Notes: Rfam assigns this 81-nucleotide RNA from Dendroctonus ponderosae to the family "mir-31 microRNA precursor family".
RNA sequence: AAAGGCUGAGCAGGCAAGAUGUCGGCAUAGCUGAAUGUAUUUGAUUUUCGGCUGUGUCUCAUCAAGCCACCUUACACCUUU
Numbered sequence: 001a002a003a004g005g006c007u008g009a010g011c012a013g014g015c016a017a018g019a020u021g022u023c024g025g026c027a028u029a030g031c032u033g034a035a036u037g038u039a040u041u042u043g044a045u046u047u048u049c050g051g052c053u054g055u056g057u058c059u060c061a062u063c064a065a066g067c068c069a070c071c072u073u074a075c076a077c078c079u080u081u
Stems, first nucleotide, its partner, number of pairs: 007074004013068003018063004024058008

Source information
Rfam 15.1 lists 1,181 matches to the family in 783 species. The base pairs follow the family's consensus structure, which was predicted with RNAalifold. Taxonomically the source falls in Dendroctonus (Eukaryota, Hexapoda, Aparaglossata, Polyphaga). Rfam links the family to the GO terms RISC complex and gene silencing by miRNA.